[Rfam]
Nucleotides: 053
Base pairs, nucleotide, nucleotide: 003049004048005047006046007045009022010021011020012019025050031040032039033038
Number, partner (000 for none) and nucleotide at each position: 001000a002000u003049c004048g005047u006046u007045c008000a009022a010021c011020c012019u013000u014000u015000a016000a017000u018000u019012a020011g021010g022009u023000c024000g025050g026000a027000a028000g029000u030000a031040a032039g033038c034000a035000a036000c037000a038033g039032c040031u041000g042000a043000a044000g045007g046006a047005a048004c049003g050025c051000g052000c053000a